[Rfam]
RNA sequence: UUUCCCUAUGAUGAUUUAUUAUCUUGAAAGUAGUGGACUGAAUUUCCUUGAGGAGAAAUGAAAUCUGAGGGAUG
Numbered sequence: 001u002u003u004c005c006c007u008a009u010g011a012u013g014a015u016u017u018a019u020u021a022u023c024u025u026g027a028a029a030g031u032a033g034u035g036g037a038c039u040g041a042a043u044u045u046c047c048u049u050g051a052g053g054a055g056a057a058a059u060g061a062a063a064u065c066u067g068a069g070g071g072a073u074g
Stems, first nucleotide, its partner, number of pairs: 001074001003072004